[Rfam]
RNA sequence: GGGGAUGUUUUAGGAGUUGAUAUUUAGCAUGAAGUAUGAAGAGCAGUGGUCUUACAAACCUAAAGGUAAAAAAAAUAUAACUGCAAAAUCUAAUUUUGUAAAUUUCUUAAGUGCUAGAAAUAGCCAAGCUUGCGCAUUCGCAGCUUAAUUAAAAAAUUAAGAAAUGGUCUAAUAAUUUUAUGCCUAUGAGAAUUAUUAGGUCUGUCUUUAAUAGGAUCAUUGUAAUUAGCGUCAUCUAAUUACAAAACAUUUAUGACUAUAUUUUAAAAAGUUAGUUUUUAUAUCUUCUUAAAAUUAAAUUGAAAAAUAAAACUAAACUGUAGAGCUUUAUAUGAAUUGCUAGGUAGAAAUGGGUUCGAAUCCCAUCAUCUCCACCA
Numbered sequence: 001g002g003g004g005a006u007g008u009u010u011u012a013g014g015a016g017u018u019g020a021u022a023u024u025u026a027g028c029a030u031g032a033a034g035u036a037u038g039a040a041g042a043g044c045a046g047u048g049g050u051c052u053u054a055c056a057a058a059c060c061u062a063a064a065g066g067u068a069a070a071a072a073a074a075a076u077a078u079a080a081c082u083g084c085a086a087a088a089u090c091u092a093a094u095u096u097u098g099u100a101a102a103u104u105u106c107u108u109a110a111g112u113g114c115u116a117g118a119a120a121u122a123g124c125c126a127a128g129c130u131u132g133c134g135c136a137u138u139c140g141c142a143g144c145u146u147a148a149u150u151a152a153a154a155a156a157u158u159a160a161g162a163a164a165u166g167g168u169c170u171a172a173u174a175a176u177u178u179u180a181u182g183c184c185u186a187u188g189a190g191a192a193u194u195a196u197u198a199g200g201u202c203u204g205u206c207u208u209u210a211a212u213a214g215g216a217u218c219a220u221u222g223u224a225a226u227u228a229g230c231g232u233c234a235u236c237u238a239a240u241u242a243c244a245a246a247a248c249a250u251u252u253a254u255g256a257c258u259a260u261a262u263u264u265u266a267a268a269a270a271g272u273u274a275g276u277u278u279u280u281a282u283a284u285c286u287u288c289u290u291a292a293a294a295u296u297a298a299a300u301u302g303a304a305a306a307a308u309a310a311a312a313c314u315a316a317a318c319u320g321u322a323g324a325g326c327u328u329u330a331u332a333u334g335a336a337u338u339g340c341u342a343g344g345u346a347g348a349a350a351u352g353g354g355u356u357c358g359a360a361u362c363c364c365a366u367c368a369u370c371u372c373c374a375c376c377a
Base pairs, nucleotide, nucleotide: 001373002372003371004370005369006368007367021346022345023344024343025342026341027340028339029338034333035332036331037330038329039328040327041326044320045319046318047317050071052069053068054067055066144161145160146159147158148157149156166202167201168200169199170198171197172196173195174194175193176192177191178190179189183215184214185213186212187211220245221244222243223242224241225240226239227238228237231258261295262294263293264292265291266290267289269287270286271285273283275313276312277311278310282306350366351365352364353363354362
RNA: transfer-messenger RNA